[Rfam]
RNA sequence: UUUGGCAAUGACGAUUCUUGAUAUGCUGAUCACUGAUCACAAAUCGUGUUGACUAUCUACUCCGCUUAUUAUCUGACGCCAUU
Numbered sequence: 001u002u003u004g005g006c007a008a009u010g011a012c013g014a015u016u017c018u019u020g021a022u023a024u025g026c027u028g029a030u031c032a033c034u035g036a037u038c039a040c041a042a043a044u045c046g047u048g049u050u051g052a053c054u055a056u057c058u059a060c061u062c063c064g065c066u067u068a069u070u071a072u073c074u075g076a077c078g079c080c081a082u083u
Stems, first nucleotide, its partner, number of pairs: 003081004
Dot-bracket structure: ..((((.......................................................................))))..
Background:
This 83-nucleotide sequence from Cuscuta australis belongs to the Rfam family "Small nucleolar RNA R16". Its family is annotated with nucleolus and RNA processing in the Gene Ontology. The family's consensus secondary structure was predicted with PFOLD. The source organism's lineage runs through Eukaryota, Pentapetalae, lamiids, Solanales and Cuscuta sect. Cleistogrammica. By type it is a C/D-box small nucleolar RNA. Rfam 15.1 lists 884 matches to the family in 222 species.